RNA sequence: GCCCUCCCCAACGCUGCGUUUCCAUGCUACAAACAGAGAGGCUUUUCACGAAGCCUCUCAGAACCUUUUCUUCGGGACUGGAACAUCAACAAGCAUGUGGGAAAUUCGGAGUACUGCCUCAAACACCACCUCCGCCCCCUGCCUCUGGCCGGGGAUGCGGACGGUCUGCCGGUAACGGCCUGGCGUCAAUCGACGCUUGCAAACGACAUCAGAAAUCUCGGAGCCGUCUCUUUGAAGCGUGUCUCCAUGGGAAGUCGUUGCGAGGCUUGUUUGGAGAAAACUGAAGUGCGAUACGCAGCGUCCUCUUUUACGAGGAUGACUCAAUUCCGAUCACUCUGGGGAGGGC
Numbered sequence: 001g002c003c004c005u006c007c008c009c010a011a012c013g014c015u016g017c018g019u020u021u022c023c024a025u026g027c028u029a030c031a032a033a034c035a036g037a038g039a040g041g042c043u044u045u046u047c048a049c050g051a052a053g054c055c056u057c058u059c060a061g062a063a064c065c066u067u068u069u070c071u072u073c074g075g076g077a078c079u080g081g082a083a084c085a086u087c088a089a090c091a092a093g094c095a096u097g098u099g100g101g102a103a104a105u106u107c108g109g110a111g112u113a114c115u116g117c118c119u120c121a122a123a124c125a126c127c128a129c130c131u132c133c134g135c136c137c138c139c140u141g142c143c144u145c146u147g148g149c150c151g152g153g154g155a156u157g158c159g160g161a162c163g164g165u166c167u168g169c170c171g172g173u174a175a176c177g178g179c180c181u182g183g184c185g186u187c188a189a190u191c192g193a194c195g196c197u198u199g200c201a202a203a204c205g206a207c208a209u210c211a212g213a214a215a216u217c218u219c220g221g222a223g224c225c226g227u228c229u230c231u232u233u234g235a236a237g238c239g240u241g242u243c244u245c246c247a248u249g250g251g252a253a254g255u256c257g258u259u260g261c262g263a264g265g266c267u268u269g270u271u272u273g274g275a276g277a278a279a280a281c282u283g284a285a286g287u288g289c290g291a292u293a294c295g296c297a298g299c300g301u302c303c304u305c306u307u308u309u310a311c312g313a314g315g316a317u318g319a320c321u322c323a324a325u326u327c328c329g330a331u332c333a334c335u336c337u338g339g340g341g342a343g344g345g346c
Base pairs, nucleotide, nucleotide: 001346002345003344004343008339009338010337013299014298015297016296017295018294019293023097024096025095026094036059037058038057039056040055041054042053043052044051107329108328109327110326111325117265118264119263120262168179169178170177171176182197183196184195185194186193202259203258204257205256206255207254221246223244300317301316302315303314304313305312

Overview: The record is a 346-nucleotide RNA sequence from Fusarium falciforme, which matches "Nuclear RNase P" in Rfam. Rfam links the family to the GO terms ribonuclease P activity, tRNA processing and ribonuclease P complex. Rfam classes the family as a ribozyme. Taxonomically the source falls in Fusarium solani species complex (Eukaryota, Opisthokonta, leotiomyceta, sordariomyceta).